RNA sequence: CACGAAAAAGCCAAACCCACCGCGAGGUGGGGACGGAAAGCCACGGGCCUCAACGAGGCAGCCGGGUUGCCUGAA
Numbered sequence: 001c002a003c004g005a006a007a008a009a010g011c012c013a014a015a016c017c018c019a020c021c022g023c024g025a026g027g028u029g030g031g032g033a034c035g036g037a038a039a040g041c042c043a044c045g046g047g048c049c050u051c052a053a054c055g056a057g058g059c060a061g062c063c064g065g066g067u068u069g070c071c072u073g074a075a
Stems, first nucleotide, its partner, number of pairs: 004071001011036002016031006034061001039068004044064003047059003
Rfam assigns this 75-nucleotide RNA from Oceanidesulfovibrio indonesiensis to the family "c-di-GMP-I-GGC riboswitch aptamer". Taxonomically the source falls in Oceanidesulfovibrio (Bacteria, Pseudomonadati, Desulfovibrionia, Desulfovibrionaceae).